Shown here is a 397-nucleotide RNA sequence from Entomobacter blattae, a member of the family "Bacterial RNase P class A". Taxonomically the source falls in Entomobacter (Bacteria, Pseudomonadati, Pseudomonadota, Alphaproteobacteria). It is annotated as a ribozyme. It scores 336 bits against the family's covariance model.
RNA sequence: CCAGAUAGCCAGACGGCCGCCCUUUUGCCUUGUAAGUAAAGGGGAGGAAAGUCCGGGCUCCACAGAAAAACGGUGCCGGUUAACGGCCGGCAAGGGCAACCUUAGGGAAAGUGCCACAGAAAACAAACCGCCCAGCUUUAAGCCAAGGUUUAACACUGGGUAAGGGUGAAACGGGGUGGUAAAAGCACACCGCAUAUAUGGUAACAUAUAUGGCAGGGCAAACCCCACCGGGAGCAAAACCAAAUAGGAAUGGCUGUAUUUUUACAGGUUAUAUACGGUUUUUCUGCCGUACCAUUCGGGUUGGUUGCUUGAGGUAGGCUGCAAGGUCUAUCCCAGAUGAAUGGCCGUCCUAAACUCUAGUUUUAGACAGAACCCGGCUUAUCGGCUAUCUGGUAUA
Numbered sequence: 001c002c003a004g005a006u007a008g009c010c011a012g013a014c015g016g017c018c019g020c021c022c023u024u025u026u027g028c029c030u031u032g033u034a035a036g037u038a039a040a041g042g043g044g045a046g047g048a049a050a051g052u053c054c055g056g057g058c059u060c061c062a063c064a065g066a067a068a069a070a071c072g073g074u075g076c077c078g079g080u081u082a083a084c085g086g087c088c089g090g091c092a093a094g095g096g097c098a099a100c101c102u103u104a105g106g107g108a109a110a111g112u113g114c115c116a117c118a119g120a121a122a123a124c125a126a127a128c129c130g131c132c133c134a135g136c137u138u139u140a141a142g143c144c145a146a147g148g149u150u151u152a153a154c155a156c157u158g159g160g161u162a163a164g165g166g167u168g169a170a171a172c173g174g175g176g177u178g179g180u181a182a183a184a185g186c187a188c189a190c191c192g193c194a195u196a197u198a199u200g201g202u203a204a205c206a207u208a209u210a211u212g213g214c215a216g217g218g219c220a221a222a223c224c225c226c227a228c229c230g231g232g233a234g235c236a237a238a239a240c241c242a243a244a245u246a247g248g249a250a251u252g253g254c255u256g257u258a259u260u261u262u263u264a265c266a267g268g269u270u271a272u273a274u275a276c277g278g279u280u281u282u283u284c285u286g287c288c289g290u291a292c293c294a295u296u297c298g299g300g301u302u303g304g305u306u307g308c309u310u311g312a313g314g315u316a317g318g319c320u321g322c323a324a325g326g327u328c329u330a331u332c333c334c335a336g337a338u339g340a341a342u343g344g345c346c347g348u349c350c351u352a353a354a355c356u357c358u359a360g361u362u363u364u365a366g367a368c369a370g371a372a373c374c375c376g377g378c379u380u381a382u383c384g385g386c387u388a389u390c391u392g393g394u395a396u397a
Stems, first nucleotide, its partner, number of pairs: 001393010011382001012349007020044009049380003053377005058234004067283003071230005076090005091105001092103004106225002111223002113219003128165002130161006138153006173191002176188003192214001193212008238306004248297006275290005313332008